[Rfam]
RNA sequence: UUGACUUUAAUGAUGUGAAUGGAGUAAAGCUUUUGGGACCUUCAUUUGCUGAUGUUGUUGUUAA
Numbered sequence: 001u002u003g004a005c006u007u008u009a010a011u012g013a014u015g016u017g018a019a020u021g022g023a024g025u026a027a028a029g030c031u032u033u034u035g036g037g038a039c040c041u042u043c044a045u046u047u048g049c050u051g052a053u054g055u056u057g058u059u060g061u062u063a064a
Base pairs, nucleotide, nucleotide: 001064002063003062004061005060015049016048017047018046019045020044021043022042023041024040030037031036
RNA: Selenocysteine insertion sequence 1